A member of the RNA family "GlmZ RNA activator of glmS mRNA" from Paramixta manurensis, 204 nucleotides long. On this family, see Islam et al., EMBO J 2023: "Structure of a bacterial ribonucleoprotein complex central to the control of cell envelope biogenesis". Rfam's curators write: This RNA was discovered in E. coli during a large scale screen. The sraJ gene was expressed in early logarithmic phase, but its level decreased with cell growth. Specific cleavage products of this RNA were found. Identified in Yersinia pseudotuberculosis as Ysr248/153/sR016. The family is grouped with related families in Rfam's "Glm clan". Taxonomically the source falls in Paramixta (Bacteria, Pseudomonadota, Gammaproteobacteria, Enterobacterales).
[Rfam]
RNA sequence: GUAGAUGCUCAUUCCGCCCCUUAUGCUUGCUAAGGCUUCAUAAACCUGGGAAUGACGCAGAGCCAUUUACGGUACCUGUUGUCCGCUCAGCCAAUAGCGUUUUCGAACCUUUAUUGGUGCUACGGACAUUACGUUGAGUCGGGUACCAAUCGGUUGUCUUACCGACCUGAUCUUUACGCUUGCCAGUUUGGCAGGCGUUUUUUU
Numbered sequence: 001g002u003a004g005a006u007g008c009u010c011a012u013u014c015c016g017c018c019c020c021u022u023a024u025g026c027u028u029g030c031u032a033a034g035g036c037u038u039c040a041u042a043a044a045c046c047u048g049g050g051a052a053u054g055a056c057g058c059a060g061a062g063c064c065a066u067u068u069a070c071g072g073u074a075c076c077u078g079u080u081g082u083c084c085g086c087u088c089a090g091c092c093a094a095u096a097g098c099g100u101u102u103u104c105g106a107a108c109c110u111u112u113a114u115u116g117g118u119g120c121u122a123c124g125g126a127c128a129u130u131a132c133g134u135u136g137a138g139u140c141g142g143g144u145a146c147c148a149a150u151c152g153g154u155u156g157u158c159u160u161a162c163c164g165a166c167c168u169g170a171u172c173u174u175u176a177c178g179c180u181u182g183c184c185a186g187u188u189u190g191g192c193a194g195g196c197g198u199u200u201u202u203u204u
Stems, first nucleotide, its partner, number of pairs: 001063002006059003009055004015050001017049001027035001071147007081127005093115004156166003176198010
Dot-bracket structure: ((...(((((((..(.(.........(.......).............)).)))).)))..)).......(((((((...(((((.......((((...............)))).......))))).............)))))))........(((.....))).........((((((((((...))))))))))......